[Rfam]
RNA sequence: UCGGGGAAGCAGAAGCCUGUCCAUGGUGGAAGGCUACAUUUUCUCGCUGAUUCCAGGAGUUUUUAUCUAUGCGUA
Numbered sequence: 001u002c003g004g005g006g007a008a009g010c011a012g013a014a015g016c017c018u019g020u021c022c023a024u025g026g027u028g029g030a031a032g033g034c035u036a037c038a039u040u041u042u043c044u045c046g047c048u049g050a051u052u053c054c055a056g057g058a059g060u061u062u063u064u065a066u067c068u069a070u071g072c073g074u075a
Stems, first nucleotide, its partner, number of pairs: 014035005020030003039065001043059003047056003
The record is a 75-nucleotide sequence from Tichodroma muraria, which matches "Repression of heat shock gene expression (ROSE) element" in Rfam. The family's consensus secondary structure is taken from published work. Lineage of the source: Eukaryota > Opisthokonta > Craniata > Neognathae > Tichodroma. A reference for the family is Nocker et al. (2001), "A mRNA-based thermosensor controls expression of rhizobial heat shock genes", Nucleic Acids Res. The family's RNA type in Rfam is RNA thermoregulator. About the family: This family represents a 5' UTR cis-regulatory element found in heat shock mRNAs and is known as the ROSE (repression of heat shock gene expression) element. The ROSE element is a negative regulator of heat shock gene expression. The secondary structure is thought to be regulated by temperature. This regulation blocks access to the ribosome binding site under normal conditions. Gene Ontology terms of the family: regulation of translation and response to temperature stimulus.